[Rfam]
RNA sequence: GGCCUCCCGCGGGCCUAACAAAGCGGAACAGCGGGUGACGGCGACCACCUAAAACGCCUA
Numbered sequence: 001g002g003c004c005u006c007c008c009g010c011g012g013g014c015c016u017a018a019c020a021a022a023g024c025g026g027a028a029c030a031g032c033g034g035g036u037g038a039c040g041g042c043g044a045c046c047a048c049c050u051a052a053a054a055c056g057c058c059u060a
Base pairs, nucleotide, nucleotide: 001015002014003013004012007026008025009024010023034049035048036047037046
The record is a 60-nucleotide RNA, which matches "GP20-b RNA" in Rfam. Rfam's curators put it in the seed alignment. The family's RNA type in Rfam is cis-regulatory element. The base pairs follow the family's consensus structure, which is taken from published work.